The family of this 98-nucleotide RNA from Prunus persica is "mir-395 microRNA precursor family".
Rfam's curators write: mir-395 was identified in both Arabidopsis thaliana and Oryza sativa computationally and was later experimentally verified. mir-395 is thought to target mRNAs coding for ATP sulphurylases. The mature sequence is excised from the 3' arm of the hairpin.
Its family is annotated with miRNA-mediated post-transcriptional gene silencing and RISC complex in the Gene Ontology.
A reference for the family is Jones-Rhoades and Bartel (2004), "Computational Identification of Plant MicroRNAs and Their Targets, Including a Stress-Induced miRNA", Mol Cell.

RNA sequence: AUGCCACCAGGAGUUCCCCCAAACACUUCAGUAGGAUAUAUAAUUGAUCAGAAAGAAUUAUUUCCCAAUGAAGUGAGUGAGGGAACUCUUGGUGACAC
Number, nucleotide and partner (000 for none) at each position: 001a000002u000003g000004c000005c094006a093007c092008c091009a090010g000011g088012a087013g086014u085015u084016c083017c082018c081019c000020c079021a000022a078023a000024c075025a074026c073027u072028u071029c070030a069031g000032u067033a000034g065035g064036a000037u000038a000039u000040a000041u000042a000043a000044u000045u000046g000047a000048u000049c000050a000051g000052a000053a000054a000055g000056a000057a000058u000059u000060a000061u000062u000063u000064c035065c034066c000067a032068a000069u030070g029071a028072a027073g026074u025075g024076a000077g000078u022079g020080a000081g018082g017083g016084a015085a014086c013087u012088c011089u000090u009091g008092g007093u006094g005095a000096c000097a000098c000